Shown here is an 81-nucleotide RNA from Sitophilus oryzae, a member of the family "bantam microRNA precursor family". The source organism's lineage runs through Eukaryota, Mandibulata, Allotriocarida, Insecta and Sitophilus. Its family is annotated with miRNA-mediated post-transcriptional gene silencing and RISC complex in the Gene Ontology.
RNA sequence: UUACUUGAACGAAACUGGUUUUCACAGUGAUUUGACAGAUAUUUUUCAUUCUGAGAUCAUUGUGAAAGCUGAUUUUGUCGA
Numbered sequence: 001u002u003a004c005u006u007g008a009a010c011g012a013a014a015c016u017g018g019u020u021u022u023c024a025c026a027g028u029g030a031u032u033u034g035a036c037a038g039a040u041a042u043u044u045u046u047c048a049u050u051c052u053g054a055g056a057u058c059a060u061u062g063u064g065a066a067a068g069c070u071g072a073u074u075u076u077g078u079c080g081a
Base pairs, nucleotide, nucleotide: 009078010077011076012075013074014073016071017070018069019068020067021066022065023064024063025062028059029058030057031056032055033054